The family of this 72-nucleotide sequence from Rattus norvegicus is "mir-129 microRNA precursor family". The literature on the family includes a 2002 paper in Curr Biol by Lagos-Quintana et al., "Identification of tissue-specific microRNAs from mouse". Taxonomically the source falls in Rattus (Eukaryota, Opisthokonta, Teleostomi, Rodentia). The family's consensus secondary structure was predicted with RNAalifold.

RNA sequence: UGGGUCUUUUUGCGGUCUGGGCUUGCUGUUCUCUCCACAGUAGUCAGGAAGCCCUUACCCCAAAAAGUAUCU
Numbered sequence: 001u002g003g004g005u006c007u008u009u010u011u012g013c014g015g016u017c018u019g020g021g022c023u024u025g026c027u028g029u030u031c032u033c034u035c036c037a038c039a040g041u042a043g044u045c046a047g048g049a050a051g052c053c054c055u056u057a058c059c060c061c062a063a064a065a066a067g068u069a070u071c072u
Stems, first nucleotide, its partner, number of pairs: 006067007014059003019054004024049001026047002